[Rfam]
RNA sequence: UUACUAUGAUGGCUGCAUAGUUCAGCAGAUUGCGUCAUGAAGAGAUGUACCAGCUAUCUGAUGUAAAA
Numbered sequence: 001u002u003a004c005u006a007u008g009a010u011g012g013c014u015g016c017a018u019a020g021u022u023c024a025g026c027a028g029a030u031u032g033c034g035u036c037a038u039g040a041a042g043a044g045a046u047g048u049a050c051c052a053g054c055u056a057u058c059u060g061a062u063g064u065a066a067a068a
Base pairs, nucleotide, nucleotide: 001066002065003064004063006038007037008036009035010034013028014027015026016025043055044054046052047051
Shown here is a 68-nucleotide RNA sequence from Callithrix jacchus, a member of the family "Small nucleolar RNA SNORD77".
The source organism's lineage runs through Eukaryota, Bilateria, Theria, Platyrrhini and Callithrix.
About the family: U77 belongs to the C/D family of snoRNAs. It is predicted to guide 2'O-ribose methylation of large 28S rRNA subunit at position A1521. The C/D snoRNAs U44, U47, U74, U75, U76, U78, U79, U80 and U81 share the same host gene as U77 (non-coding).
A reference for the family is Tycowski et al. (2004), "Guide RNAs with 5' caps and novel box C/D snoRNA-like domains for modification of snRNAs in metazoa", Curr Biol.
The family is grouped with related families in Rfam's "SNORD77 clan".
Rfam classes the family as a C/D-box small nucleolar RNA.